[Rfam]
RNA sequence: GCCCUGUGGUUGCUGGGAGCUGCUGUGCCCGUGCAGUGCCUCAGUGGGGAGCUUGGGCGCACAGUGACUCUGUGAUGAACGCAGGGAGGCUGUGAUCCGUGAGCAGCCUCCGCAGCCCGGUCACAGGCACAGCC
Numbered sequence: 001g002c003c004c005u006g007u008g009g010u011u012g013c014u015g016g017g018a019g020c021u022g023c024u025g026u027g028c029c030c031g032u033g034c035a036g037u038g039c040c041u042c043a044g045u046g047g048g049g050a051g052c053u054u055g056g057g058c059g060c061a062c063a064g065u066g067a068c069u070c071u072g073u074g075a076u077g078a079a080c081g082c083a084g085g086g087a088g089g090c091u092g093u094g095a096u097c098c099g100u101g102a103g104c105a106g107c108c109u110c111c112g113c114a115g116c117c118c119g120g121u122c123a124c125a126g127g128c129a130c131a132g133c134c
Stems, first nucleotide, its partner, number of pairs: 001058004007050001010047008019037005070126001072124005081116002085111002088108006

Small nucleolar RNA SNORA84: a 134-nucleotide RNA sequence from Polioptila caerulea. The source organism's lineage runs through Eukaryota, Deuterostomia, Sarcopterygii, Passeriformes and Polioptila. Rfam classes the family as an H/ACA-box small nucleolar RNA. Pairs were carried over by alignment from the consensus structure, which was predicted with WAR. Its family is annotated with nucleolus and RNA processing in the Gene Ontology.